[Rfam]
RNA sequence: AAAAACCUGCAAUGUUGGUGAAUUCAUUUAUUUUUAAACCACAUAUAUAAUUAGGGAGUUAAGGUCUAAUAGUGGAAGUCAGGCCACAACAAUUAGUGGAAGGCAGAACCUAAUAGCCAACACCCACUUGAGUGAGGAGUGGGUUUUUAAAAUAGAUUUGAUAAACACGGCAAAGCGGGUAUAAA
Number, nucleotide and partner (000 for none) at each position: 001a000002a000003a182004a000005a180006c179007c178008u177009g176010c175011a000012a000013u172014g171015u170016u000017g000018g168019u167020g000021a000022a000023u000024u000025c000026a000027u000028u000029u000030a000031u152032u151033u150034u149035u000036a147037a146038a145039c143040c142041a000042c000043a000044u000045a000046u000047a000048u000049a000050a000051u000052u000053a000054g125055g124056g123057a000058g121059u120060u119061a000062a000063g000064g000065u000066c000067u115068a114069a000070u112071a111072g110073u000074g000075g000076a000077a000078g000079u103080c102081a000082g000083g000084c099085c098086a097087c096088a000089a000090c000091a000092a000093u000094u000095a000096g087097u086098g085099g084100a000101a000102g080103g079104c000105a000106g000107a000108a000109c000110c072111u071112a070113a000114u068115a067116g000117c000118c000119a060120a059121c058122a000123c056124c055125c054126a000127c000128u000129u000130g000131a000132g000133u000134g000135a000136g000137g000138a000139g000140u000141g000142g040143g039144u000145u038146u037147u036148u000149a034150a033151a032152a031153u000154a000155g000156a000157u000158u000159u000160g000161a000162u000163a000164a000165a000166c000167a019168c018169g000170g015171c014172a013173a000174a000175g010176c009177g008178g007179g006180u005181a000182u003183a000184a000185a000

The family of this 185-nucleotide sequence from Candidatus Syntrophocurvum alkaliphilum is "6S / SsrS RNA". The organism belongs to Candidatus Syntrophocurvum, within Bacteria. It scores 64 bits against the family's covariance model. A reference for the family is Trotochaud and Wassarman (2005), "A highly conserved 6S RNA structure is required for regulation of transcription", Nat Struct Mol Biol. Rfam describes the family as follows. E. coli 6S RNA was the first non coding RNA to be sequenced, but its function was unknown until recently. The family has 150 seed sequences and 5,006 matches in Rfam 15.1.